Record summary
Shown here is a 165-nucleotide part of an RNA from Powellomyces hirtus, a member of the family "Eukaryotic small subunit ribosomal RNA". On this family, see Yusupov et al., Science 2001: "Crystal structure of the ribosome at 5.5 A resolution". Taxonomically the source falls in Powellomyces (Eukaryota, Chytridiomycota, Chytridiomycotina, Spizellomycetales).
RNA sequence: CCGCCCGUCGCUACUACCGAUUGAAUGGCUUAGUGAGUCCUCCGGAUUGGAAGCUAUGUUCCGGCAACGGAACGCAGCUUUCGAGAAGUUGGGCAAACUUGGUCAUUUAGAGGAAGUAAAAGUCGUAACAAGGUAACCGUAGGUGAACCUGCGGUUGGAUCAUUA
Numbered sequence: 001c002c003g004c005c006c007g008u009c010g011c012u013a014c015u016a017c018c019g020a021u022u023g024a025a026u027g028g029c030u031u032a033g034u035g036a037g038u039c040c041u042c043c044g045g046a047u048u049g050g051a052a053g054c055u056a057u058g059u060u061c062c063g064g065c066a067a068c069g070g071a072a073c074g075c076a077g078c079u080u081u082c083g084a085g086a087a088g089u090u091g092g093g094c095a096a097a098c099u100u101g102g103u104c105a106u107u108u109a110g111a112g113g114a115a116g117u118a119a120a121a122g123u124c125g126u127a128a129c130a131a132g133g134u135a136a137c138c139g140u141a142g143g144u145g146a147a148c149c150u151g152c153g154g155u156u157g158g159a160u161c162a163u164u165a
Stems, first nucleotide, its partner, number of pairs: 001132001003129001006125002009122001012118004017113002021109001023108008032099003037094004043088001047084009057074001059072004134157010